Source information: tRNA: a 73-nucleotide RNA sequence from Saccharomyces cerevisiae. From the family's description: Transfer RNA (tRNA) molecules are approximately 80 nucleotides in length. The source organism's lineage runs through Eukaryota, Fungi, saccharomyceta, Saccharomycetales and Saccharomyces.
[Rfam]
Nucleotides: 073
Stems, first nucleotide, its partner, number of pairs: 001072007010025004027043005049065005
Number, partner (000 for none) and nucleotide at each position: 001072u002071c003070c004069u005068u006067g007066u008000u009000a010025g011024c012023u013022c014000a015000g016000u017000u018000g019000g020000u021000a022013g023012a024011g025010c026000g027043u028042u029041c030040g031039g032000c033000u034000u035000u036000u037000a038000a039031c040030c041029g042028a043027a044000a045000u046000g047000u048000c049065a050064g051063g052062g053061g054000u055000u056000c057000g058000a059000g060000c061053c062052c063051c064050c065049u066007a067006u068005g069004a070003g071002g072001a073000g